[Rfam]
RNA sequence: GAAUGCAUUCCGUAUGGAAGACUAGUGAUUUUGUUGUUUGGUCUUUAAUAAAAUUAACAAUAAAUCCCUUGUCUUCUUAUGGCGUGUAUUU
Dot-bracket structure: .(((((((.(((((.((.((((..(.(((((.((((((.................))))))))))).)..)))))).))))).))))))).
Shown here is a 91-nucleotide RNA from Drosophila willistoni, a member of the family "mir-7 microRNA precursor family".
The organism belongs to Sophophora, within Eukaryota.
Rfam describes the family as follows. This family represents the microRNA (miRNA) precursor mir-7.